[Rfam]
RNA sequence: AAGUUGCUGCAGUUAAAAAGCUCGUAGUUGGAUCUUGGGAUCGAGCUGAUGGUCCGCCGCGAGGCAAGCUACCGUCUGUCCCAGCCCCUGCCUCUUGGCGCCCCCUGGAUGCUCUUAGCUGAGUGUCCCGUGGGGUCCGAAGCGUUUACUUUGAAAAAAAUUAGAGUGUUCAAAGCAGGCCCGGUCGCCUGAAUAUCGCAGCUAGGAAUAAUGGAAUAGGACUCCAGUUCUAUUUUGUGGGUUUUCUCCUCUGAACUGGGGCCAUGAUUAAGAGGGACGGCCGGGGGCAUUCGUAUUGUGCCGCUAGAGAUGAAAUUCUUGGACCGGCGCAAGCAUUUGCCAAGAAUGUUUUUGUUAAUCAGAAAACGAAAGUCGGAAGUUCGAAGACAAUCGGAUACUGUCGUAGUUCCGACUAUAAAAACUAGCGAUCCGGUGGCGUUAUUCCCAUGACCCGCCGGGCAGCAACCGGGAAACCAAAGUCUUUGGGUUCCGGGGGGAGUAUGGUUGCAAAGCUGAAACUUAAAGGAAU
Numbered sequence: 001a002a003g004u005u006g007c008u009g010c011a012g013u014u015a016a017a018a019a020g021c022u023c024g025u026a027g028u029u030g031g032a033u034c035u036u037g038g039g040a041u042c043g044a045g046c047u048g049a050u051g052g053u054c055c056g057c058c059g060c061g062a063g064g065c066a067a068g069c070u071a072c073c074g075u076c077u078g079u080c081c082c083a084g085c086c087c088c089u090g091c092c093u094c095u096u097g098g099c100g101c102c103c104c105c106u107g108g109a110u111g112c113u114c115u116u117a118g119c120u121g122a123g124u125g126u127c128c129c130g131u132g133g134g135g136u137c138c139g140a141a142g143c144g145u146u147u148a149c150u151u152u153g154a155a156a157a158a159a160a161u162u163a164g165a166g167u168g169u170u171c172a173a174a175g176c177a178g179g180c181c182c183g184g185u186c187g188c189c190u191g192a193a194u195a196u197c198g199c200a201g202c203u204a205g206g207a208a209u210a211a212u213g214g215a216a217u218a219g220g221a222c223u224c225c226a227g228u229u230c231u232a233u234u235u236u237g238u239g240g241g242u243u244u245u246c247u248c249c250u251c252u253g254a255a256c257u258g259g260g261g262c263c264a265u266g267a268u269u270a271a272g273a274g275g276g277a278c279g280g281c282c283g284g285g286g287g288c289a290u291u292c293g294u295a296u297u298g299u300g301c302c303g304c305u306a307g308a309g310a311u312g313a314a315a316u317u318c319u320u321g322g323a324c325c326g327g328c329g330c331a332a333g334c335a336u337u338u339g340c341c342a343a344g345a346a347u348g349u350u351u352u353u354g355u356u357a358a359u360c361a362g363a364a365a366a367c368g369a370a371a372g373u374c375g376g377a378a379g380u381u382c383g384a385a386g387a388c389a390a391u392c393g394g395a396u397a398c399u400g401u402c403g404u405a406g407u408u409c410c411g412a413c414u415a416u417a418a419a420a421a422c423u424a425g426c427g428a429u430c431c432g433g434u435g436g437c438g439u440u441a442u443u444c445c446c447a448u449g450a451c452c453c454g455c456c457g458g459g460c461a462g463c464a465a466c467c468g469g470g471a472a473a474c475c476a477a478a479g480u481c482u483u484u485g486g487g488u489u490c491c492g493g494g495g496g497g498a499g500u501a502u503g504g505u506u507g508c509a510a511a512g513c514u515g516a517a518a519c520u521u522a523a524a525g526g527a528a529u
Stems, first nucleotide, its partner, number of pairs: 010492001012490001018489001020367001022365001027359003274353004278348002282344001286341004293334001296332008307318003372413006382406001386402004421480002425463002429459008438451003468475002494521003503514004
RNA: Eukaryotic small subunit ribosomal RNA, nucleotides 601 to 1129